A member of the RNA family "Small nucleolar RNA snoR639/H1" from Coptotermes formosanus, 131 nucleotides long. By type it is an H/ACA-box small nucleolar RNA. Rfam's curators write: snoR639 or snoH1 belongs to the H/ACA class of snoRNAs which are thought to guide the sites of modification of uridines to pseudouridines. snoH1 is found in an intron of the mfl gene in Drosophila. It scores 45 bits against the family's covariance model. A reference for the family is Giordano et al. (1999), "minifly, a Drosophila gene required for ribosome biogenesis", J Cell Biol. The family has 9 seed sequences and 77 matches in Rfam 15.1.

RNA sequence: ACCCCACCCAACUAAGCCGGCUGUGGUCAACAUCAAGUGUUGCUAUGGUGUGCUCGUGGUGGGAACAGUAAACCUGAAAUGUGUAUAGCUGAUUGUGUGACUGCAUUUCAGCUAAAGGAAAUUCAGAGACA
Number, nucleotide and partner (000 for none) at each position: 001a000002c000003c000004c000005c000006a000007c000008c000009c000010a000011a000012c000013u000014a000015a000016g000017c000018c000019g000020g049021c048022u047023g046024u045025g044026g043027u042028c000029a000030a000031c000032a000033u000034c000035a000036a000037g000038u000039g000040u000041u000042g027043c026044u025045a024046u023047g022048g021049u020050g000051u000052g000053c000054u000055c000056g000057u000058g000059g000060u000061g000062g000063g000064a000065a000066c000067a000068g000069u000070a000071a000072a000073c000074c126075u125076g124077a123078a000079a000080u000081g000082u000083g000084u000085a000086u114087a113088g112089c111090u110091g109092a108093u000094u000095g106096u105097g104098u103099g000100a000101c000102u000103g098104c097105a096106u095107u000108u092109c091110a090111g089112c088113u087114a086115a000116a000117g000118g000119a000120a000121a000122u000123u077124c076125a075126g074127a000128g000129a000130c000131a000